[Rfam]
Nucleotides: 107
Base pairs, nucleotide, nucleotide: 001107002106003105004104005103006102007101008100013041015040016039017038021031022030023029025079027077028076042071043070044069045068047067048066049063050062051061052060075099080096081095082094083093084092085091
Number, partner (000 for none) and nucleotide at each position: 001107u002106u003105c004104u005103u006102a007101u008100c009000c010000a011000g012000a013041g014000a015040g016039g017038u018000g019000g020000a021031g022030g023029g024000u025079c026000u027077g028076g029023c030022c031021c032000g033000a034000u035000g036000a037000a038017g039016c040015c041013c042071g043070g044069c045068a046000a047067c048066c049063g050062u051061u052060g053000c054000a055000u056000a057000u058000u059000g060052c061051a062050a063049c064000a065000a066048g067047g068045u069044g070043c071042c072000a073000a074000u075099u076028c077027c078000u079025g080096c081095g082094a083093g084092a085091c086000g087000u088000u089000u090000c091085g092084u093083c094082u095081c096080g097000a098000a099075a100008g101007a102006u103005a104004a105003g106002a107001a